This 79-nucleotide sequence from Chanos chanos belongs to the Rfam family "mir-27 microRNA precursor family". A search with the family's covariance model found it, with a score of 76 bits. Pairs were carried over by alignment from the consensus structure, which was predicted with RNAalifold. The source organism's lineage runs through Eukaryota, Opisthokonta, Chordata, Chanoidei and Chanos. For this family Rfam cites "MicroRNA profile of Marek's disease virus-transformed T-cell line MSB-1: predominance of virus-encoded microRNAs" (Yao et al., J Virol, 2008).
[Rfam]
RNA sequence: AGUGGGUGCAGAACUUAGCUGACUGGUGAGCAGCAAUUGUUUAUCUCUAUGUUCACAGUGGCUAAGUUCUUCACUUGAA
Numbered sequence: 001a002g003u004g005g006g007u008g009c010a011g012a013a014c015u016u017a018g019c020u021g022a023c024u025g026g027u028g029a030g031c032a033g034c035a036a037u038u039g040u041u042u043a044u045c046u047c048u049a050u051g052u053u054c055a056c057a058g059u060g061g062c063u064a065a066g067u068u069c070u071u072c073a074c075u076u077g078a079a
Stems, first nucleotide, its partner, number of pairs: 011069010026056007